This 219-nucleotide RNA sequence belongs to the Rfam family "Group II catalytic intron D1-D4-6".
[Rfam]
RNA sequence: UGUGCAUUCCAUCCAGAAGAACUGAGCAAGUUACUGGAAGCGAGUCUUGCAUGGGUCUUGGCGACAAGAUUUGUGAAGCGUAGACAGCGAGUACAAAAGCCGCGUGAUUGAGCUCCGAAAUUAGGUAUCAUCGCAUGAGGCUUUCACUAUACUACCAGUGGGAGCGACCGUGGGCGUACGAUAAGCGAGUGCGUUCACCUUGGCCGGGGUCGGAGAGCG
Numbered sequence: 001u002g003u004g005c006a007u008u009c010c011a012u013c014c015a016g017a018a019g020a021a022c023u024g025a026g027c028a029a030g031u032u033a034c035u036g037g038a039a040g041c042g043a044g045u046c047u048u049g050c051a052u053g054g055g056u057c058u059u060g061g062c063g064a065c066a067a068g069a070u071u072u073g074u075g076a077a078g079c080g081u082a083g084a085c086a087g088c089g090a091g092u093a094c095a096a097a098a099g100c101c102g103c104g105u106g107a108u109u110g111a112g113c114u115c116c117g118a119a120a121u122u123a124g125g126u127a128u129c130a131u132c133g134c135a136u137g138a139g140g141c142u143u144u145c146a147c148u149a150u151a152c153u154a155c156c157a158g159u160g161g162g163a164g165c166g167a168c169c170g171u172g173g174g175c176g177u178a179c180g181a182u183a184a185g186c187g188a189g190u191g192c193g194u195u196c197a198c199c200u201u202g203g204c205c206g207g208g209g210u211c212g213g214a215g216a217g218c219g
Stems, first nucleotide, its partner, number of pairs: 012038005020032004026186002040088002044085004048080002050075011109213001110211001112210006133204002136202004140165003145160004170198010
The literature on the family includes a 2001 paper in Trends Genet by Bonen and Vogel, "The ins and outs of group II introns". It is one of the family's seed sequences.